[Rfam]
Source information
A member of the RNA family "Small Cajal body specific RNA 3" from Lamprotornis superbus, 136 nucleotides long. The family is grouped with related families in Rfam's "SCARNA3 clan". NCBI's taxonomy places the organism under Eukaryota, Bilateria, Dipnotetrapodomorpha, Sturnidae, Lamprotornis. Rfam 15.1 lists 642 matches to the family in 535 species. The family's consensus secondary structure was predicted with RNAalifold. scaRNAs are a specific class of small nuclear RNAs which localise to the Cajal bodies and guide the modification of RNA polymerase II transcribed spliceosomal RNAs U1, U2, U4, U5 and U12.

RNA sequence: GCUGGGACCUCUUGGGACCAGUCAUGGGCAAAAUUAAUAUUUUUUUGUCCACUGUUGCAGUCUUCCUAGAGCAAAGUGGAGGUUUCUGUCUGCUUUAGGACAGCUAACUAAAUCAGAUCGUUCCCCUCCUUACACG
Dot-bracket structure: ...(((..((.(............(((((((.............))))))).....).))...)))...........(((((...(.(((.(.(((((.........))))).).))).)....))))).......